Source information:
Rfam assigns this 100-nucleotide RNA from Propionispira arboris to the family "THF (Tetrahydrofolate) riboswitch aptamer".
[Rfam]
RNA sequence: AGCAGAGUAAGUCGUUGUGCGUCAAGUGUCAGAUGAACGGGGAGUUGACAUCUGAACGAAAAGCUAAAAGCUUGCGGUACAGCCACUGCAUCCCGCUGUU
Dot-bracket structure: (((((....(((.(((((((((...((.(((((((....[[[.[....)))))))))...((((.....))))))).)))))).))).].]]]..)))))
The literature on the family includes a 2014 paper in Chem Biol by Trausch and Batey, "A disconnect between high-affinity binding and efficient regulation by antifolates and purines in the tetrahydrofolate riboswitch".